[Rfam]
RNA sequence: AAGGAAAGACAGAAAUACCCAAUAUCUUGUUCCAGCAAGAUAUUGGGUAUUUCUUUG
Numbered sequence: 001a002a003g004g005a006a007a008g009a010c011a012g013a014a015a016u017a018c019c020c021a022a023u024a025u026c027u028u029g030u031u032c033c034a035g036c037a038a039g040a041u042a043u044u045g046g047g048u049a050u051u052u053c054u055u056u057g
Stems, first nucleotide, its partner, number of pairs: 008056001011054007021044002024041006
Rfam assigns this 57-nucleotide RNA from Brachyelytrum aristosum to the family "Plastid-psbA-4 3UTR RNA".
The family's RNA type in Rfam is cis-regulatory element.
The family's consensus secondary structure was predicted with LocARNA.